[Rfam]
RNA sequence: AUCGGUCCUCGGUAGUGGUCUCCUGGACCUUUCGCGAGUGUCUCGGUCUGUCCGGUGAGAUUUGCGGAGAACCAGCCCAGUGGACCUCGAUCGAUGACCGCC
Numbered sequence: 001a002u003c004g005g006u007c008c009u010c011g012g013u014a015g016u017g018g019u020c021u022c023c024u025g026g027a028c029c030u031u032u033c034g035c036g037a038g039u040g041u042c043u044c045g046g047u048c049u050g051u052c053c054g055g056u057g058a059g060a061u062u063u064g065c066g067g068a069g070a071a072c073c074a075g076c077c078c079a080g081u082g083g084a085c086c087u088c089g090a091u092c093g094a095u096g097a098c099c100g101c102c
Stems, first nucleotide, its partner, number of pairs: 003100005009094005017086005023080004028075001
Shown here is a 102-nucleotide RNA from Mobiluncus curtisii, a member of the family "Actino-pnp RNA". Lineage of the source: Bacteria > Bacillati > Actinomycetota > Actinomycetales > Mobiluncus curtisii. The match comes from Rfam's covariance-model search (51 bits).